[Rfam]
RNA sequence: GCCCUUGAAUUCGCCCCGGCAAGCGCCCUAUAUUAGACCUGUCCCUCGGGACUAUGGACAUAAACGCGCUCGUAAUAAGCGGAUCGGACCCGGGGGCGGUACCCGGCGGCUCCACCAAAAAUCCUUCGUUUGGGGAUCAUGGGGCCGAAACAGGAUCGACGAACGUCUAAAGGUGUAGCUUUGUCUCGGUGAGGUACCACCGUUAUCGGUCCGAAAAGUACAAUUGCAAACGACAAUCGUGCUCCGGUGGCUCUGGCUGCGUAAGCAGUCCGAACUAUCGAAAUCUAAGCCCUUGCGCCUAGCAGCGUAAGGCGGGGUUCGCAGGCACCUGGCAACAGAAGCCUGCACU
Numbered sequence: 001g002c003c004c005u006u007g008a009a010u011u012c013g014c015c016c017c018g019g020c021a022a023g024c025g026c027c028c029u030a031u032a033u034u035a036g037a038c039c040u041g042u043c044c045c046u047c048g049g050g051a052c053u054a055u056g057g058a059c060a061u062a063a064a065c066g067c068g069c070u071c072g073u074a075a076u077a078a079g080c081g082g083a084u085c086g087g088a089c090c091c092g093g094g095g096g097c098g099g100u101a102c103c104c105g106g107c108g109g110c111u112c113c114a115c116c117a118a119a120a121a122u123c124c125u126u127c128g129u130u131u132g133g134g135g136a137u138c139a140u141g142g143g144g145c146c147g148a149a150a151c152a153g154g155a156u157c158g159a160c161g162a163a164c165g166u167c168u169a170a171a172g173g174u175g176u177a178g179c180u181u182u183g184u185c186u187c188g189g190u191g192a193g194g195u196a197c198c199a200c201c202g203u204u205a206u207c208g209g210u211c212c213g214a215a216a217a218g219u220a221c222a223a224u225u226g227c228a229a230a231c232g233a234c235a236a237u238c239g240u241g242c243u244c245c246g247g248u249g250g251c252u253c254u255g256g257c258u259g260c261g262u263a264a265g266c267a268g269u270c271c272g273a274a275c276u277a278u279c280g281a282a283a284u285c286u287a288a289g290c291c292c293u294u295g296c297g298c299c300u301a302g303c304a305g306c307g308u309a310a311g312g313c314g315g316g317g318u319u320c321g322c323a324g325g326c327a328c329c330u331g332g333c334a335a336c337a338g339a340a341g342c343c344u345g346c347a348c349u
Base pairs, nucleotide, nucleotide: 041052042051043050044049056186057185058184059183060182066179067178068176069175071173080165081164084162085161086160090106091105092104093103094102107147108146109145110144111143112142113141187202188201189200190199193212194211196210197209198208315330316329317328318327321346322345323344324343325342326341
RNA: Alphaproteobacteria transfer-messenger RNA